The family of this 98-nucleotide RNA sequence from Ruminococcaceae bacterium BL-6 is "Guanidine-I riboswitch aptamer". Pairs were carried over by alignment from the consensus structure.
[Rfam]
RNA sequence: AGUACAGUUUUAUAGGGUUCCGCAGCGAAAUCGCCGGCCUGCACCGAGAUAAAACGCACAGAAUACUGUGUUCACGGAAGGAUAAAAGCCUGGGAGAU
Numbered sequence: 001a002g003u004a005c006a007g008u009u010u011u012a013u014a015g016g017g018u019u020c021c022g023c024a025g026c027g028a029a030a031u032c033g034c035c036g037g038c039c040u041g042c043a044c045c046g047a048g049a050u051a052a053a054a055c056g057c058a059c060a061g062a063a064u065a066c067u068g069u070g071u072u073c074a075c076g077g078a079a080g081g082a083u084a085a086a087a088g089c090c091u092g093g094g095a096g097a098u
Stems, first nucleotide, its partner, number of pairs: 007055006015045002021041001022039001023036001025034003056071006073093001075096001079091003
Dot-bracket structure: ......((((((..((....(((.(((....))).)..).)..))....))))))((((((....)))))).(.[...(((.......))).)..]..